[Rfam]
RNA: Lysine riboswitch aptamer
Organism: Aedoeadaptatus coxii
RNA sequence: CUGCAUGAUAGAGGCGCAUGUUUCAUCAGUACCGAUCAUCUCCGGUCAAUGGAUCUUCGGGAAAGGGAAACGUGCCGAGGGUUAAGUAUUUGUGUCCACGGAUACUUUUCGCCGGGACGUAGGAAAAUAUCCUGCGUACUGUCGUUCGCCGAGCGAACGGAGCGCUAUCGUGUCU
Numbered sequence: 001c002u003g004c005a006u007g008a009u010a011g012a013g014g015c016g017c018a019u020g021u022u023u024c025a026u027c028a029g030u031a032c033c034g035a036u037c038a039u040c041u042c043c044g045g046u047c048a049a050u051g052g053a054u055c056u057u058c059g060g061g062a063a064a065g066g067g068a069a070a071c072g073u074g075c076c077g078a079g080g081g082u083u084a085a086g087u088a089u090u091u092g093u094g095u096c097c098a099c100g101g102a103u104a105c106u107u108u109u110c111g112c113c114g115g116g117a118c119g120u121a122g123g124a125a126a127a128u129a130u131c132c133u134g135c136g137u138a139c140u141g142u143c144g145u146u147c148g149c150c151g152a153g154c155g156a157a158c159g160g161a162g163c164g165c166u167a168u169c170g171u172g173u174c175u
Base pairs, nucleotide, nucleotide: 006170007169008168009167010166011165016075017074018073019072020071021070022069023068024067032060033059034058035057038054039053079113080112081110084107085106086105087104088103089102090101114140115139117137118136119135120134121133122132123131124130142160143159144158145157146156147155148154